[Rfam]
This 92-nucleotide RNA from Neophocaena asiaeorientalis belongs to the Rfam family "Small nucleolar RNA SNORD116".
NCBI's taxonomy places the organism under Eukaryota, Mammalia, Theria, Whippomorpha, Neophocaena asiaeorientalis.
The base pairs follow the family's consensus structure, which was predicted with PFOLD.
It scores 79 bits against the family's covariance model.
RNA sequence: GGAUCGAUGGUGACUCCCAAAAAUGAAUUCCUUGGAAAUAUGAACAAAAUGAAUGAGAAAUCCCUACCAUCUCCUCAUAAGAGCUGAUGUCC
Number, nucleotide and partner (000 for none) at each position: 001g092002g091003a090004u089005c000006g000007a000008u000009g000010g000011u000012g000013a000014c000015u000016c000017c000018c000019a000020a000021a000022a000023a000024u000025g000026a000027a054028u053029u052030c051031c000032u047033u046034g045035g000036a000037a000038a000039u000040a000041u000042g000043a000044a000045c034046a033047a032048a000049a000050u000051g030052a029053a028054u027055g000056a000057g000058a000059a000060a000061u000062c000063c000064c000065u000066a000067c000068c000069a000070u000071c000072u000073c000074c000075u000076c000077a000078u000079a000080a000081g000082a000083g000084c000085u000086g000087a000088u000089g004090u003091c002092c001